[Rfam]
RNA sequence: UGACCUACCUUACAAGUCGUUAAACUGUAAAGGCAAUAGACUAAGCGACAGUCGUAAAACAGCGUA
Dot-bracket structure: [[[[.....(((((.]]]]......)))))........(((.........))).............
This 66-nucleotide RNA sequence belongs to the Rfam family "GP20-b RNA". The base pairs follow the family's consensus structure, which is taken from published work. The sequence is in the family's curated seed alignment.